[Rfam]
The record is a 256-nucleotide part of an RNA from uncultured crenarchaeote, which matches "Archaeal large subunit ribosomal RNA" in Rfam. NCBI's taxonomy places the organism under Archaea, Thermoproteati, Thermoproteota. The sequence is in the family's curated seed alignment.
RNA sequence: GAGCUUGUUGUUAUGGCGAGCUUAACCCGUUAAGGGGUAGGCGAAGGGAAACCAAUUUCGCGCAGCAUUAGCAAGGCGAAGGAUCUGAAAGGGUCUUGAGUCAUAGCAAUAAGGCUAGAAACCGGACGAUCUAUUCCUGGACAGGAUGAAGGUGGGCGAAAGCUCGCUGGAAGUCCGAAGGGGUCCUGACGUGCAAAUCGGUCCUCAGAUCUGGGAUUAGGGGUCAAAAACCAAUCUAGUCCGGUGAUCGCUAGUU
Numbered sequence: 001g002a003g004c005u006u007g008u009u010g011u012u013a014u015g016g017c018g019a020g021c022u023u024a025a026c027c028c029g030u031u032a033a034g035g036g037g038u039a040g041g042c043g044a045a046g047g048g049a050a051a052c053c054a055a056u057u058u059c060g061c062g063c064a065g066c067a068u069u070a071g072c073a074a075g076g077c078g079a080a081g082g083a084u085c086u087g088a089a090a091g092g093g094u095c096u097u098g099a100g101u102c103a104u105a106g107c108a109a110u111a112a113g114g115c116u117a118g119a120a121a122c123c124g125g126a127c128g129a130u131c132u133a134u135u136c137c138u139g140g141a142c143a144g145g146a147u148g149a150a151g152g153u154g155g156g157c158g159a160a161a162g163c164u165c166g167c168u169g170g171a172a173g174u175c176c177g178a179a180g181g182g183g184u185c186c187u188g189a190c191g192u193g194c195a196a197a198u199c200g201g202u203c204c205u206c207a208g209a210u211c212u213g214g215g216a217u218u219a220g221g222g223g224u225c226a227a228a229a230a231c232c233a234a235u236c237u238a239g240u241c242c243g244g245u246g247a248u249c250g251c252u253a254g255u256u
Stems, first nucleotide, its partner, number of pairs: 005112013020042004026036003046053002058079004065072002082095004115254002118251001122244006131220003135216007142208001144176004151168007180205004185201002188199002222232003
Dot-bracket structure: ....(((((((((((((..((((..(((.....)))..))))...((....))....((((...((....))...))))..((((......))))....)))))))))))))..((.(...((((((...(((.((((((((.((((...(((((((....)))))))....))))...((((.((.((........))))))))..).))))))).))).(((.....)))......))))))......).))..